[Rfam]
Nucleotides: 244
Base pairs, nucleotide, nucleotide: 007101008100015096016095017094018093026085027084031080039073040072041071050070051069052068053067054066103136104135105134106133108131109130138150139149140148187203188202189201190200191199192198193197209241210240211239212238220237221236222235223234224233
Number, partner (000 for none) and nucleotide at each position: 001000a002000a003000u004000a005000a006000a007101c008100c009000g010000u011000u012000g013000a014000g015096g016095g017094a018093g019000a020000g021000g022000a023000g024000u025000a026085c027084c028000u029000c030000u031080u032000u033000g034000u035000g036000a037000u038000u039073c040072a041071u042000a043000g044000g045000a046000g047000a048000g049000a050070g051069c052068c053067g054066c055000g056000a057000u058000g059000g060000u061000g062000g063000g064000a065000u066054g067053c068052g069051g070050u071041a072040u073039g074000a075000u076000a077000g078000c079000a080031a081000u082000u083000u084027g085026g086000g087000a088000a089000u090000g091000g092000a093018c094017u095016c096015c097000u098000g099000a100008g101007g102000g103136c104135g105134u106133g107000a108131g109130g110000a111000a112000a113000u114000g115000a116000c117000u118000g119000a120000g121000g122000u123000c124000a125000g126000a127000g128000u129000a130109u131108u132000g133106c134105a135104c136103g137000a138150c139149g140148u141000a142000a143000g144000g145000c146000a147000u148140a149139c150138g151000u152000u153000a154000g155000u156000u157000g158000c159000c160000a161000g162000g163000g164000a165000u166000a167000u168000g169000a170000u171000g172000g173000u174000a175000u176000c177000c178000u179000g180000u181000u182000a183000a184000g185000c186000g187203c188202a189201u190200a191199g192198g193197a194000u195000u196000a197193u198192c199191c200190u201189a202188u203187g204000a205000a206000u207000u208000c209241a210240a211239g212238g213000u214000g215000g216000c217000a218000c219000c220237g221236c222235g223234g224233a225000a226000a227000a228000g229000a230000a231000u232000u233224u234223u235222c236221g237220u238212c239211c240210u241209u242000g243000a244000u